[Rfam]
RNA sequence: GCAUCUGUGGUCUAGUGGUAGAAUACCUCGUUGCCAUCGAGGUGACCCGGGUUCGAUUCCCGGCAGAUGCA
Numbered sequence: 001g002c003a004u005c006u007g008u009g010g011u012c013u014a015g016u017g018g019u020a021g022a023a024u025a026c027c028u029c030g031u032u033g034c035c036a037u038c039g040a041g042g043u044g045a046c047c048c049g050g051g052u053u054c055g056a057u058u059c060c061c062g063g064c065a066g067a068u069g070c071a
Base pairs, nucleotide, nucleotide: 001070002069003068004067005066006065007064010024011023013021026042027041028040029039030038047063048062049061050060051059

Rfam assigns this 71-nucleotide RNA sequence from Theileria parva to the family "tRNA". Rfam classes the family as a transfer RNA.